[Rfam]
RNA sequence: UGGCACAUGUGGGGCCUGGAUACAGGGGGCUUAUCUUGAGGAAGAAGAUUUAAGCUGCCAGCGCUGUAUACAGAAAUUCCUUUGAACACCAUGGGAGCCUGCAGCAGCCGAAACGAAGGAGAGUGAUAGAGUCUGAAUAUGGGACACGCAUUAAGCCAACAUGAGGUCUAUGCGAAACAAUUAAAAGAGACAUUAAAGGUGUGAGGAGUAAAGGUAAAAACCAAUGACUUGUUUAAAUUUUUUGAUUUUGUUAACGGUCUUUGCCCUU
Numbered sequence: 001u002g003g004c005a006c007a008u009g010u011g012g013g014g015c016c017u018g019g020a021u022a023c024a025g026g027g028g029g030c031u032u033a034u035c036u037u038g039a040g041g042a043a044g045a046a047g048a049u050u051u052a053a054g055c056u057g058c059c060a061g062c063g064c065u066g067u068a069u070a071c072a073g074a075a076a077u078u079c080c081u082u083u084g085a086a087c088a089c090c091a092u093g094g095g096a097g098c099c100u101g102c103a104g105c106a107g108c109c110g111a112a113a114c115g116a117a118g119g120a121g122a123g124u125g126a127u128a129g130a131g132u133c134u135g136a137a138u139a140u141g142g143g144a145c146a147c148g149c150a151u152u153a154a155g156c157c158a159a160c161a162u163g164a165g166g167u168c169u170a171u172g173c174g175a176a177a178c179a180a181u182u183a184a185a186a187g188a189g190a191c192a193u194u195a196a197a198g199g200u201g202u203g204a205g206g207a208g209u210a211a212a213g214g215u216a217a218a219a220a221c222c223a224a225u226g227a228c229u230u231g232u233u234u235a236a237a238u239u240u241u242u243u244g245a246u247u248u249u250g251u252u253a254a255c256g257g258u259c260u261u262u263g264c265c266c267u268u
Stems, first nucleotide, its partner, number of pairs: 006029001009023003034048004078120005087110001092104001094102001129145001132143004152195003155191001157189001202244008212230004217225001253268002256265003
The family of this 268-nucleotide RNA from Rattus norvegicus is "Mason-Pfizer monkey virus packaging signal". Rfam classes the family as a cis-regulatory element.